[Rfam]
RNA sequence: UCACCGGCAUCUGCGUAAAAGCUUGGCAGAGUAAAUCCGGCACCGGACACGACGAAGAGG
Numbered sequence: 001u002c003a004c005c006g007g008c009a010u011c012u013g014c015g016u017a018a019a020a021g022c023u024u025g026g027c028a029g030a031g032u033a034a035a036u037c038c039g040g041c042a043c044c045g046g047a048c049a050c051g052a053c054g055a056a057g058a059g060g
Stems, first nucleotide, its partner, number of pairs: 004040004010030004015022002
The record is a 60-nucleotide sequence, which matches "cow-rumen-1 RNA" in Rfam. It is annotated as a small RNA. The base pairs follow the family's consensus structure, which is taken from published work.